The record is a 73-nucleotide RNA sequence from Albidovulum inexpectatum, which matches "Singlet oxygen resistance RNA X" in Rfam. Its family is annotated with response to photooxidative stress in the Gene Ontology.
RNA sequence: CCCCUGGCCGCGUCGGGGCAAGGACGCGGUUCCUCCCUGUUGGACUGGCCGGGCCUCGCGCCCGGCCCUUUUC
Numbered sequence: 001c002c003c004c005u006g007g008c009c010g011c012g013u014c015g016g017g018g019c020a021a022g023g024a025c026g027c028g029g030u031u032c033c034u035c036c037c038u039g040u041u042g043g044a045c046u047g048g049c050c051g052g053g054c055c056u057c058g059c060g061c062c063c064g065g066c067c068c069u070u071u072u073c
Stems, first nucleotide, its partner, number of pairs: 008029007047067008
Taxonomically the source falls in Albidovulum (Bacteria, Pseudomonadota, Rhodobacterales, Paracoccaceae). Rfam 15.1 lists 528 matches to the family in 356 species. From the family's description: SorX (RSs2461)like SorY is a singlet oxygen induced sRNA that counteracts oxidative stress by targeting mRNA for a transporter in Rhodobacter. It also has an impact on resistance against organic hydroperoxides. It targets SD sequence of potA mRNA via an aSD sequence. The aSD sequence and some neighbouring nucleotides are identical to the one of SorY (targets takP mRNA). Rfam classes the family as a small RNA. The base pairs follow the family's consensus structure.